[Rfam]
RNA sequence: GACGACGGAUGCGCAAUCGCUUUACAUUUAUUGUGAAGAGGAAAGUCCGAACUUUAACUGCAAAAAAGCAUAGGCAUUAUUGCAGAAAACGGUAGCAGGUAAUACCUGUCGCCCGCAAGGGCAGAGGUGCGAACAGAGACGCCUUUUCCGGAGACGGAAAAAGUAUCCUGAAAAAAGGAUAAGCUUUUGUAGUAAUGCAGAAGAUGAAACGGCUAAAUCCUUACUGGAAAGCAAGACUGAAGUAUAGUCGCUUGACCGUUAAAAGUGAUUUUAGCGGCAGAGAAAUGAUUGCGUUUUUAAAAUUUAUUUUUAAAAAACAGAAUUCGGCUUAUAAUCCGUCUUUGUUU
Numbered sequence: 001g002a003c004g005a006c007g008g009a010u011g012c013g014c015a016a017u018c019g020c021u022u023u024a025c026a027u028u029u030a031u032u033g034u035g036a037a038g039a040g041g042a043a044a045g046u047c048c049g050a051a052c053u054u055u056a057a058c059u060g061c062a063a064a065a066a067a068g069c070a071u072a073g074g075c076a077u078u079a080u081u082g083c084a085g086a087a088a089a090c091g092g093u094a095g096c097a098g099g100u101a102a103u104a105c106c107u108g109u110c111g112c113c114c115g116c117a118a119g120g121g122c123a124g125a126g127g128u129g130c131g132a133a134c135a136g137a138g139a140c141g142c143c144u145u146u147u148c149c150g151g152a153g154a155c156g157g158a159a160a161a162a163g164u165a166u167c168c169u170g171a172a173a174a175a176a177g178g179a180u181a182a183g184c185u186u187u188u189g190u191a192g193u194a195a196u197g198c199a200g201a202a203g204a205u206g207a208a209a210c211g212g213c214u215a216a217a218u219c220c221u222u223a224c225u226g227g228a229a230a231g232c233a234a235g236a237c238u239g240a241a242g243u244a245u246a247g248u249c250g251c252u253u254g255a256c257c258g259u260u261a262a263a264a265g266u267g268a269u270u271u272u273a274g275c276g277g278c279a280g281a282g283a284a285a286u287g288a289u290u291g292c293g294u295u296u297u298u299a300a301a302a303u304u305u306a307u308u309u310u311u312a313a314a315a316a317a318c319a320g321a322a323u324u325c326g327g328c329u330u331a332u333a334a335u336c337c338g339u340c341u342u343u344g345u346u347u
Base pairs, nucleotide, nucleotide: 001343002342004340005339006338007337008336009335010334011332012293013292014291015290016289017288018287020038021037022036023035024034025033026032043330044329045328047327048326049325050324051323052231053230054229055228071226072225073224095109096108097107098106099105110124111122112121113120114119125221126220127219131213145156147152164181165180166179167178168177169176183205184203185202186201187200188199189198190197191196235249236248237247238246257276258275259274260273261272262271263270264269
Rfam assigns this 347-nucleotide RNA from Candidatus Endomicrobiellum trichonymphae to the family "Bacterial RNase P class A". By type it is a ribozyme. Its family is annotated with tRNA processing, ribonuclease P activity and dimeric ribonuclease P complex in the Gene Ontology.